Shown here is a 178-nucleotide RNA sequence from Brasilonema sennae, a member of the family "Antisense RNA which regulates isiA expression".
The literature on the family includes a 2006 paper in Proc Natl Acad Sci U S A by Duhring et al., "An internal antisense RNA regulates expression of the photosynthesis gene isiA".
The base pairs follow the family's consensus structure, which was predicted with PFOLD.
The match comes from Rfam's covariance-model search (121 bits).
Taxonomically the source falls in Brasilonema sennae (Bacteria, Bacillati, Cyanobacteriota, Nostocales).
[Rfam]
RNA sequence: GAUAGCCGUAGAUAACAAAUGGGUUGAGGGUAGGCUCACUCACGAGUCGGACAUCAUGAAUUGUGGAGUCGUAGAGUCCUCCCCAGAACAUUGCUUUCCCCGCGAGUAGUAAAGCCCCUACUCCCAAGAAAAUCAAGUGAUGUCCUAAGAUAAAGCUGAGUUUUUUGGGAUCAUCCCA
Numbered sequence: 001g002a003u004a005g006c007c008g009u010a011g012a013u014a015a016c017a018a019a020u021g022g023g024u025u026g027a028g029g030g031u032a033g034g035c036u037c038a039c040u041c042a043c044g045a046g047u048c049g050g051a052c053a054u055c056a057u058g059a060a061u062u063g064u065g066g067a068g069u070c071g072u073a074g075a076g077u078c079c080u081c082c083c084c085a086g087a088a089c090a091u092u093g094c095u096u097u098c099c100c101c102g103c104g105a106g107u108a109g110u111a112a113a114g115c116c117c118c119u120a121c122u123c124c125c126a127a128g129a130a131a132a133u134c135a136a137g138u139g140a141u142g143u144c145c146u147a148a149g150a151u152a153a154a155g156c157u158g159a160g161u162u163u164u165u166u167g168g169g170a171u172c173a174u175c176c177c178a
Stems, first nucleotide, its partner, number of pairs: 137174005144169005